Shown here is a 238-nucleotide RNA from Prauserella shujinwangii, a member of the family "Actinobacteria sRNA Ms_IGR-5". By type it is a small RNA.
[Rfam]
RNA sequence: ACACGAGAAGGGAGGUGGUCCGACGUUGAAGAACGACAGGACUCGUGAGGUGGCUGUCCGCUGACGGACGGCACGUGUAUCUGGACUCGCCGCACAGGGCACGGCUUCGGCCACCUGUGACACGUGUGUCUGCCGGCGAAUACCAGGCAGUCACCGGACCCCCGACGCUCCCGGGAACCAGUCCGACCCGGGCCCGGCCGGCUGACGACGGCCGGGAGCCGCGUCGGGGGUCUUCCUC
Numbered sequence: 001a002c003a004c005g006a007g008a009a010g011g012g013a014g015g016u017g018g019u020c021c022g023a024c025g026u027u028g029a030a031g032a033a034c035g036a037c038a039g040g041a042c043u044c045g046u047g048a049g050g051u052g053g054c055u056g057u058c059c060g061c062u063g064a065c066g067g068a069c070g071g072c073a074c075g076u077g078u079a080u081c082u083g084g085a086c087u088c089g090c091c092g093c094a095c096a097g098g099g100c101a102c103g104g105c106u107u108c109g110g111c112c113a114c115c116u117g118u119g120a121c122a123c124g125u126g127u128g129u130c131u132g133c134c135g136g137c138g139a140a141u142a143c144c145a146g147g148c149a150g151u152c153a154c155c156g157g158a159c160c161c162c163c164g165a166c167g168c169u170c171c172c173g174g175g176a177a178c179c180a181g182u183c184c185g186a187c188c189c190g191g192g193c194c195c196g197g198c199c200g201g202c203u204g205a206c207g208a209c210g211g212c213c214g215g216g217a218g219c220c221g222c223g224u225c226g227g228g229g230g231u232c233u234u235c236c237u238c
Base pairs, nucleotide, nucleotide: 014058015057016056017055018054019053059138060137061136062135063134065132067130068129069128070127073125074124075123076122077121078120156233157232158231159230160229161228162227163226164225165224166223167222168221
For this family Rfam cites "Identification of small RNAs in Mycobacterium smegmatis using heterologous Hfq" (Li et al., RNA, 2013).